Background: The family of this 130-nucleotide RNA from Nannospalax galili is "Small nucleolar RNA SNORA20". ACA20 is a member of the H/ACA class of snoRNA that guide the sites of modification of uridines to pseudouridines. It is annotated as an H/ACA-box small nucleolar RNA. Clan: SNORA20 clan. The source organism's lineage runs through Eukaryota, Eumetazoa, Craniata, Theria and Nannospalax.

[Rfam]
RNA sequence: UUUCCCAUUUACUUGCUGCCCUAGUCUCCCAGCGACAGGAGCAGUUAUACACAUGGGAUAAAACAAUAUUGGGCCAUUGCAAAUUGAGAUGAAGUAAGUGUUUUGUUUCUUUUGCAAGGUCUAAACAUUG
Numbered sequence: 001u002u003u004c005c006c007a008u009u010u011a012c013u014u015g016c017u018g019c020c021c022u023a024g025u026c027u028c029c030c031a032g033c034g035a036c037a038g039g040a041g042c043a044g045u046u047a048u049a050c051a052c053a054u055g056g057g058a059u060a061a062a063a064c065a066a067u068a069u070u071g072g073g074c075c076a077u078u079g080c081a082a083a084u085u086g087a088g089a090u091g092a093a094g095u096a097a098g099u100g101u102u103u104u105g106u107u108u109c110u111u112u113u114g115c116a117a118g119g120u121c122u123a124a125a126c127a128u129u130g
Base pairs, nucleotide, nucleotide: 003058004057005056006055007054008053015045016044017043018042019041021039022037025035026034069124070123071122072121073120074119075118078116079115080114081113086109087108088107089106090105091104092103093102094101095100